RNA sequence: UGUACAACUGAACGGAUGUAAGGGCGGUCGGCUAAUCUCCCGGAAGGGAGGUGAUGCCAUGGAAGUAUACCAAGCUUUGACGCUGAUGAUUUCAUUUGCGACAUUGGUUGUGUUGAUACUUUCGUUCCAUAAAAGGAAAUAGACCGCCCUGGUAGGACACGGUCUAUUCCGUCGUUCCGAUGCCGACCGCUCUUAUAGCGGAAGUUGUGCAGAGGGGCCGGUUGCAGCCGGUCCC
Dot-bracket structure: (((((.(((...(((.....((((.(.(....(.(.(((((....))))).).)......(((((((.......(............)..........((((.........)))).)))))))..................).)..)))).........(((......)))...........))).((((.......)))).))).)))))..(((((((((....)))))))))
RNA: BsrG